[Rfam]
RNA sequence: GACUCGUUGGCCUAAUGGAUAAGGCGUCAGACUUCGGAUCUGAAGAUUGUGGGUUCGAGUCCCAUACGAGUCG
Numbered sequence: 001g002a003c004u005c006g007u008u009g010g011c012c013u014a015a016u017g018g019a020u021a022a023g024g025c026g027u028c029a030g031a032c033u034u035c036g037g038a039u040c041u042g043a044a045g046a047u048u049g050u051g052g053g054u055u056c057g058a059g060u061c062c063c064a065u066a067c068g069a070g071u072c073g
Base pairs, nucleotide, nucleotide: 001072002071003070004069005068006067007066010025011024012023013022027043028042029041030040031039049065050064051063052062053061

This 73-nucleotide RNA from Hesseltinella vesiculosa belongs to the Rfam family "tRNA".
The family's consensus secondary structure is taken from published work.
Lineage of the source: Eukaryota > Mucoromycota > Mucorales > Cunninghamellaceae > Hesseltinella.
It scores 69 bits against the family's covariance model.